RNA sequence: GAUUACAUCUUCUUCUCUGUAAUCGCGGCUG
Numbered sequence: 001g002a003u004u005a006c007a008u009c010u011u012c013u014u015c016u017c018u019g020u021a022a023u024c025g026c027g028g029c030u031g
Stems, first nucleotide, its partner, number of pairs: 001024007
A member of the RNA family "S4-Bacteroidia ribosomal protein leader" from Bacteroides coprosuis, 31 nucleotides long. The source organism's lineage runs through Bacteria, Bacteroidota, Bacteroidaceae, Bacteroides and Bacteroides coprosuis. By type it is a cis-regulatory leader. For this family Rfam cites "Discovery of 20 novel ribosomal leader candidates in bacteria and archaea" (Eckert and Weinberg, BMC Microbiol, 2020). It is one of the family's seed sequences.